Lysine riboswitch aptamer: a 185-nucleotide sequence from Exiguobacterium artemiae. Rfam describes the family as follows. Riboswitches are metabolite binding domains within certain messenger RNAs that serve as precision sensors for their corresponding targets. Allosteric rearrangement of mRNA structure is mediated by ligand binding, and this results in modulation of gene expression. Pairs were carried over by alignment from the consensus structure, which is taken from published work.
[Rfam]
RNA sequence: CAGUGGGAUGGAGGUUGCAGUUCUUAUAAGUACAGUCACGGAUGUCGUCAAGCGGCAGAUGAGGUGAUUGAAAAGGAAGAAUUGCCGAAAUCAAUCAUCGCUUUGAAGAUGAUCGAUUGGGAUUAGAUCGAACAGGUCUAAUACUGUCACAGGUCAGAUAUGACUUGUGGGGAGCUAUCUUUCAC
Numbered sequence: 001c002a003g004u005g006g007g008a009u010g011g012a013g014g015u016u017g018c019a020g021u022u023c024u025u026a027u028a029a030g031u032a033c034a035g036u037c038a039c040g041g042a043u044g045u046c047g048u049c050a051a052g053c054g055g056c057a058g059a060u061g062a063g064g065u066g067a068u069u070g071a072a073a074a075g076g077a078a079g080a081a082u083u084g085c086c087g088a089a090a091u092c093a094a095u096c097a098u099c100g101c102u103u104u105g106a107a108g109a110u111g112a113u114c115g116a117u118u119g120g121g122a123u124u125a126g127a128u129c130g131a132a133c134a135g136g137u138c139u140a141a142u143a144c145u146g147u148c149a150c151a152g153g154u155c156a157g158a159u160a161u162g163a164c165u166u167g168u169g170g171g172g173a174g175c176u177a178u179c180u181u182u183c184a185c
Stems, first nucleotide, its partner, number of pairs: 006180006017085009033070007089118004094113006119145002122142008147170007